[Rfam]
Rfam assigns this 105-nucleotide RNA from Polaromonas naphthalenivorans to the family "SAM-I/IV (S-adenosyl methionine) riboswitch aptamer". The family is grouped with related families in Rfam's "SAM clan". Gene Ontology terms of the family: regulation of gene expression and S-adenosylmethionine metabolic process. For this family Rfam cites "The aptamer core of SAM-IV riboswitches mimics the ligand-binding site of SAM-I riboswitches" (Weinberg et al., RNA, 2008). Lineage of the source: Bacteria > Pseudomonadota > Betaproteobacteria > Burkholderiales > Polaromonas naphthalenivorans. Pairs were carried over by alignment from the consensus structure, which is taken from published work.
RNA sequence: AGACAACAUCAAGACUGGAUAGAAAUAUUCAGACCAACCUGCCAACUCGGGCAAGGUGGUUAGCGAAAGCAGAUGGGGCUUCUCGAAGCAACCAAACGAGCCAUU
Numbered sequence: 001a002g003a004c005a006a007c008a009u010c011a012a013g014a015c016u017g018g019a020u021a022g023a024a025a026u027a028u029u030c031a032g033a034c035c036a037a038c039c040u041g042c043c044a045a046c047u048c049g050g051g052c053a054a055g056g057u058g059g060u061u062a063g064c065g066a067a068a069g070c071a072g073a074u075g076g077g078g079c080u081u082c083u084c085g086a087a088g089c090a091a092c093c094a095a096a097c098g099a100g101c102c103a104u105u
Base pairs, nucleotide, nucleotide: 007075008074009073010072015032016031017030018029019028020027033060034059035058038056039055040054041052042051043050046100047099048098049097078089079088080087081086